[Rfam]
RNA sequence: GCGGAUGCCAAAUCCGUUGGAAUGUAACCUAUAAGGUUGAACCAUAAA
Numbered sequence: 001g002c003g004g005a006u007g008c009c010a011a012a013u014c015c016g017u018u019g020g021a022a023u024g025u026a027a028c029c030u031a032u033a034a035g036g037u038u039g040a041a042c043c044a045u046a047a048a
Stems, first nucleotide, its partner, number of pairs: 001017005018044003026038005

This 48-nucleotide RNA belongs to the Rfam family "eL15-Euryarchaeota ribosomal protein leader".
On this family, see Eckert and Weinberg, BMC Microbiol 2020: "Discovery of 20 novel ribosomal leader candidates in bacteria and archaea".
By type it is a cis-regulatory leader.